[Rfam]
RNA sequence: AGCAGACGACAGGGGAGCGCGGAAGCGCUGAGAGUGCGGGGCCGCCAGUGAUGGCGCCGCCCGCAGACCCUCGAACCUGAUCUGGGUAAUGCCAGCGCAGGAAGUCGGUCUGUCCGUUCG
Number, nucleotide and partner (000 for none) at each position: 001a000002g000003c000004a000005g000006a000007c107008g106009a105010c104011a071012g070013g069014g068015g000016a000017g028018c027019g026020c025021g000022g000023a000024a000025g020026c019027g018028c017029u000030g000031a000032g000033a000034g000035u065036g064037c063038g062039g061040g000041g000042c000043c000044g000045c000046c000047a000048g000049u000050g000051a000052u000053g000054g000055c000056g000057c000058c000059g000060c000061c039062c038063g037064c036065a035066g000067a000068c014069c013070c012071u011072c000073g000074a000075a000076c101077c100078u099079g098080a000081u000082c095083u094084g093085g092086g000087u000088a000089a000090u000091g000092c085093c084094a083095g082096c000097g000098c079099a078100g077101g076102a000103a000104g010105u009106c008107g007108g000109u000110c000111u000112g000113u000114c000115c000116g000117u000118u000119c000120g000
RNA: TPP riboswitch aptamer (THI element)
Organism: Actinopolymorpha singaporensis